[Rfam]
RNA: Iron response element II
RNA sequence: AUUAUUUCGUUGACAGUGUUCAACAAAUCAA
Numbered sequence: 001a002u003u004a005u006u007u008c009g010u011u012g013a014c015a016g017u018g019u020u021c022a023a024c025a026a027a028u029c030a031a
Base pairs, nucleotide, nucleotide: 002030004028005027006026007025009024010023011022012021013020014018